Record summary:
Shown here is a 49-nucleotide RNA, a member of the family "DUF2693-FD RNA".
[Rfam]
RNA sequence: ACCCUACUGACGGAUUGAACGACAGCCAGUAGCGAGAACUGGGUAGGGU
Number, nucleotide and partner (000 for none) at each position: 001a049002c048003c047004c046005u045006a044007c043008u000009g000010a000011c021012g020013g000014a000015u000016u000017g033018a000019a000020c012021g011022a000023c036024a000025g000026c042027c041028a040029g039030u038031a000032g000033c017034g000035a000036g023037a000038a030039c029040u028041g027042g026043g007044u006045a005046g004047g003048g002049u001

Description
DUF2693-FD RNA is a non-coding RNA (ncRNA) recognised in Bacteroides by a bioinformatic analisis by Zasha Weinberg. No recognised genes. It is annotated as a small RNA. Rfam's curators put it in the seed alignment.